This 119-nucleotide RNA from Flaviflexus ciconiae belongs to the Rfam family "FMN riboswitch aptamer (RFN element)". The family's consensus secondary structure is taken from published work. It scores 94 bits against the family's covariance model. The organism belongs to Flaviflexus, within Bacteria. Rfam links the family to the GO term FMN binding.
[Rfam]
RNA sequence: CUUGUGUUUCGGGGUCGGUGAAAAUCCGAGCCGGCGGUUAAAGUCCGCGACCCGCGCAAGCGGCUGACGAGGUGAAACUCCUCGACCGACGGUCAAAGUCCGGAUGGGAGGAACACGUU
Numbered sequence: 001c002u003u004g005u006g007u008u009u010c011g012g013g014g015u016c017g018g019u020g021a022a023a024a025u026c027c028g029a030g031c032c033g034g035c036g037g038u039u040a041a042a043g044u045c046c047g048c049g050a051c052c053c054g055c056g057c058a059a060g061c062g063g064c065u066g067a068c069g070a071g072g073u074g075a076a077a078c079u080c081c082u083c084g085a086c087c088g089a090c091g092g093u094c095a096a097a098g099u100c101c102g103g104a105u106g107g108g109a110g111g112a113a114c115a116c117g118u119u
Stems, first nucleotide, its partner, number of pairs: 003117008016028003030099002032088002034048004043086002052063002068084005090102003